[Rfam]
RNA sequence: CAAAGUGCUCAUAGUGCAGGUAGUUUUUUGCAAAUGACUACUGUACUAUGGGCACUUCAGC
Dot-bracket structure: (.(((((((((((((((.(((((..............))))))))))))))))))))..).
Numbered sequence: 001c002a003a004a005g006u007g008c009u010c011a012u013a014g015u016g017c018a019g020g021u022a023g024u025u026u027u028u029u030g031c032a033a034a035u036g037a038c039u040a041c042u043g044u045a046c047u048a049u050g051g052g053c054a055c056u057u058c059a060g061c
Stems, first nucleotide, its partner, number of pairs: 001060001003057015019042005